Annotation: The family of this 64-nucleotide sequence is "Exoribonuclease-resistant RNA (xrRNA) plant-infecting virus (class 3)". Rfam classes the family as a cis-regulatory element. The literature on the family includes a 2024 paper in bioRxiv [Preprint] by Gezelle et al., "The pseudoknot structure of a viral RNA reveals a conserved mechanism for programmed exoribonuclease resistance".
RNA sequence: AACACAGCCGGCAAAUAAACUUAAAAUAAGUAGGUUGCAAGAUCGGAGUGUACAAGUCCUACAA
Dot-bracket structure: [......[[.[[.................(((((......]..]]]....]......)))))..